[Rfam]
RNA sequence: CGAUCUGAGUAGCGCUAGCUUGUGACCCAUGUGGGGGAACCAAGGUGAUGGAACAUGGCUAAAGAUUAACAAGGUUGGUCUGGUGGUUGCGCCAUGCUGGCCUUCCCACUCCAAGAUGCGAGUUGACCCAUGGGAUUUGUGCUAAGGCACGGGUCAUAUGGGUCUUAGACAGGAGGGUAUUAUAGCGUGAGGCUGGUUUCACAGAGUAGCGAACACUUCUUACUCCUGACAGUGGGGAGGGAUCGCGGGCACCUCCUCCCCACAACACCUAGUGAGCCUAGCCCUGAACCAUCUCUUUU
Numbered sequence: 001c002g003a004u005c006u007g008a009g010u011a012g013c014g015c016u017a018g019c020u021u022g023u024g025a026c027c028c029a030u031g032u033g034g035g036g037g038a039a040c041c042a043a044g045g046u047g048a049u050g051g052a053a054c055a056u057g058g059c060u061a062a063a064g065a066u067u068a069a070c071a072a073g074g075u076u077g078g079u080c081u082g083g084u085g086g087u088u089g090c091g092c093c094a095u096g097c098u099g100g101c102c103u104u105c106c107c108a109c110u111c112c113a114a115g116a117u118g119c120g121a122g123u124u125g126a127c128c129c130a131u132g133g134g135a136u137u138u139g140u141g142c143u144a145a146g147g148c149a150c151g152g153g154u155c156a157u158a159u160g161g162g163u164c165u166u167a168g169a170c171a172g173g174a175g176g177g178u179a180u181u182a183u184a185g186c187g188u189g190a191g192g193c194u195g196g197u198u199u200c201a202c203a204g205a206g207u208a209g210c211g212a213a214c215a216c217u218u219c220u221u222a223c224u225c226c227u228g229a230c231a232g233u234g235g236g237g238a239g240g241g242a243u244c245g246c247g248g249g250c251a252c253c254u255c256c257u258c259c260c261c262a263c264a265a266c267a268c269c270u271a272g273u274g275a276g277c278c279u280a281g282c283c284c285u286g287a288a289c290c291a292u293c294u295c296u297u298u299u
Stems, first nucleotide, its partner, number of pairs: 001036001002021002005018003026035003042298004047293005054286002057283003062279001064277001067275001069273002072270004077260002082255002086252001088251003092248002098245003102241003106237002111235003115230001117228002120225004125164008134155009171221006186211003193204003
Background: Shown here is a 299-nucleotide RNA sequence from Lathyrus oleraceus, a member of the family "Plant signal recognition particle RNA". It is annotated as a non-coding RNA gene. A search with the family's covariance model found it, with a score of 153 bits. Taxonomically the source falls in Lathyrus (Eukaryota, Tracheophyta, Euphyllophyta, Papilionoideae). The family's consensus secondary structure is taken from published work. Gene Ontology terms of the family: SRP-dependent cotranslational protein targeting to membrane, signal sequence recognition and signal recognition particle, endoplasmic reticulum targeting. The family is grouped with related families in Rfam's "SRP clan". The literature on the family includes a 2000 paper in Science by Batey et al., "Crystal structure of the ribonucleoprotein core of the signal recognition particle".